[Rfam]
RNA: Streptomyces-metH RNA
Organism: Streptomyces palmae
RNA sequence: CUGUCCCGGGUGGUGGAACACCUGACCCACCGACCACCUCCGGAGGCUACGCUGACGAGGUGCGCCCUCCGACGGACGGGCGCAAAGCCGACAGCCGUCGCACCCCAGGGAGCAUGCCCAUG
Numbered sequence: 001c002u003g004u005c006c007c008g009g010g011u012g013g014u015g016g017a018a019c020a021c022c023u024g025a026c027c028c029a030c031c032g033a034c035c036a037c038c039u040c041c042g043g044a045g046g047c048u049a050c051g052c053u054g055a056c057g058a059g060g061u062g063c064g065c066c067c068u069c070c071g072a073c074g075g076a077c078g079g080g081c082g083c084a085a086a087g088c089c090g091a092c093a094g095c096c097g098u099c100g101c102a103c104c105c106c107a108g109g110g111a112g113c114a115u116g117c118c119c120a121u122g
Stems, first nucleotide, its partner, number of pairs: 061084004066078001068076002087101002090099003